[Rfam]
RNA: Coronavirus frameshifting stimulation element
RNA sequence: GGGCAAGGGGUUCUAGUGGAGCUCGACUAGAACCCUGUGGUAAUGGUACUGAACCUGAUGUAGUUGUAAGAGCUUUUG
Numbered sequence: 001g002g003g004c005a006a007g008g009g010g011u012u013c014u015a016g017u018g019g020a021g022c023u024c025g026a027c028u029a030g031a032a033c034c035c036u037g038u039g040g041u042a043a044u045g046g047u048a049c050u051g052a053a054c055c056u057g058a059u060g061u062a063g064u065u066g067u068a069a070g071a072g073c074u075u076u077u078g
Stems, first nucleotide, its partner, number of pairs: 008035009020074005037064002040061003046055001